Small nucleolar RNA SNORD10: a 138-nucleotide RNA from Triplophysa tibetana. For this family Rfam cites "RNomics: an experimental approach that identifies 201 candidates for novel, small, non-messenger RNAs in mouse" (Huttenhofer et al., EMBO J, 2001). A search with the family's covariance model found it, with a score of 71 bits. Rfam links the family to the GO terms nucleolus and RNA processing. Rfam 15.1 lists 433 matches to the family in 306 species. NCBI's taxonomy places the organism under Eukaryota, Craniata, Actinopteri, Osteoglossocephalai, Triplophysa. By type it is a C/D-box small nucleolar RNA. The base pairs follow the family's consensus structure, which was predicted with WAR.
[Rfam]
RNA sequence: GUUUUGUGAUGAUUCCCAUGCGUGUCAUAUGAUCCUUGACCCCCCGCUGUACUCUGUGUCUGUUGAGCGUUUUGCUCUGCAGUACAUCGGAGUAUGUAGGACUCUAGGAAUAUGAUCAUGACUGUCAAGUCUGAAAAC
Numbered sequence: 001g002u003u004u005u006g007u008g009a010u011g012a013u014u015c016c017c018a019u020g021c022g023u024g025u026c027a028u029a030u031g032a033u034c035c036u037u038g039a040c041c042c043c044c045c046g047c048u049g050u051a052c053u054c055u056g057u058g059u060c061u062g063u064u065g066a067g068c069g070u071u072u073u074g075c076u077c078u079g080c081a082g083u084a085c086a087u088c089g090g091a092g093u094a095u096g097u098a099g100g101a102c103u104c105u106a107g108g109a110a111u112a113u114g115a116u117c118a119u120g121a122c123u124g125u126c127a128a129g130u131c132u133g134a135a136a137a138c
Stems, first nucleotide, its partner, number of pairs: 001138004044100002048096004